A member of the RNA family "Potassium channel RNA editing signal", 114 nucleotides long. The base pairs follow the family's consensus structure, which is taken from published work. This family represents a group of sequences related to the human potassium channel Kv1.1 hairpin element which directs the efficient modification of an adenosine to inosine by an adenosine deaminase acting on RNA (ADAR). Rfam links the family to the GO term adenosine to inosine editing. The family's RNA type in Rfam is cis-regulatory element. Rfam's curators put it in the seed alignment.
RNA sequence: CUGGGGUAUGGUGACAUGGUGCCGAAGACAAUAGCUGGCAAGAUUUUUGGUUCAAUAUGCUCCUUGAGUGGAGUCUUAGUGAUUGCUCUGCCAGUUCCUGUAAUUGUCUCCAAC
Number, nucleotide and partner (000 for none) at each position: 001c000002u113003g000004g111005g110006g000007u000008a107009u106010g105011g104012u000013g000014a101015c100016a099017u000018g097019g096020u000021g095022c094023c000024g000025a000026a000027g000028a000029c000030a000031a000032u000033a000034g000035c000036u000037g077038g076039c000040a074041a000042g000043a000044u000045u000046u000047u000048u000049g063050g062051u000052u000053c000054a000055a000056u000057a000058u000059g000060c000061u000062c050063c049064u000065u000066g000067a000068g000069u000070g000071g000072a000073g000074u040075c000076u038077u037078a000079g000080u000081g000082a000083u000084u000085g000086c000087u000088c000089u000090g000091c000092c000093a000094g022095u021096u019097c018098c000099u016100g015101u014102a000103a000104u011105u010106g009107u008108c000109u000110c005111c004112a000113a002114c000